[Rfam]
RNA sequence: AGAGUGGGCCAGGCAGUCGCCGCCUUCGCAAGAAGGGGGAGGAAAGUCCGGACUCCAAAGGGCAGGGUGAUGGCUAACGGCCAUCCGUGGCAACACGCGGAACAGGGCAACAGAGAGCAGACCGCCGAUGGCCCCGGGCGCAAGCCCGGUGGAUCAGGUAAGGGUGAAACGGUGCGGUAAGAGCGCACCGCGUCUGCGGCGACGCAGACGGCACGGUAACCUCCACCCGGAGCAAUUCCAAAUAGGCAGGCACGCACCCUCGCGGUGCAGGACGGGGCCCCCGUUCGUCUGCGGGUAGGAAGCUUGAGCGCGUCAGUAAUGGCGCGUCUAGAGGAAUGACUGCCACGCGUGCCGGUAACGGCGCGUGCACAGAAUCCGGCUUACCGGCCCACUUUGCCU
Numbered sequence: 001a002g003a004g005u006g007g008g009c010c011a012g013g014c015a016g017u018c019g020c021c022g023c024c025u026u027c028g029c030a031a032g033a034a035g036g037g038g039g040a041g042g043a044a045a046g047u048c049c050g051g052a053c054u055c056c057a058a059a060g061g062g063c064a065g066g067g068u069g070a071u072g073g074c075u076a077a078c079g080g081c082c083a084u085c086c087g088u089g090g091c092a093a094c095a096c097g098c099g100g101a102a103c104a105g106g107g108c109a110a111c112a113g114a115g116a117g118c119a120g121a122c123c124g125c126c127g128a129u130g131g132c133c134c135c136g137g138g139c140g141c142a143a144g145c146c147c148g149g150u151g152g153a154u155c156a157g158g159u160a161a162g163g164g165u166g167a168a169a170c171g172g173u174g175c176g177g178u179a180a181g182a183g184c185g186c187a188c189c190g191c192g193u194c195u196g197c198g199g200c201g202a203c204g205c206a207g208a209c210g211g212c213a214c215g216g217u218a219a220c221c222u223c224c225a226c227c228c229g230g231a232g233c234a235a236u237u238c239c240a241a242a243u244a245g246g247c248a249g250g251c252a253c254g255c256a257c258c259c260u261c262g263c264g265g266u267g268c269a270g271g272a273c274g275g276g277g278c279c280c281c282c283g284u285u286c287g288u289c290u291g292c293g294g295g296u297a298g299g300a301a302g303c304u305u306g307a308g309c310g311c312g313u314c315a316g317u318a319a320u321g322g323c324g325c326g327u328c329u330a331g332a333g334g335a336a337u338g339a340c341u342g343c344c345a346c347g348c349g350u351g352c353c354g355g356u357a358a359c360g361g362c363g364c365g366u367g368c369a370c371a372g373a374a375u376c377c378g379g380c381u382u383a384c385c386g387g388c389c390c391a392c393u394u395u396g397c398c399u
Stems, first nucleotide, its partner, number of pairs: 001395010012344007020039002023036005044382003048379005053232004060280004065228005070084005085099001086097004100223002105221002107217002122163002124159003129156003133152002171189006190212001191210008236301004246292006271285005308327008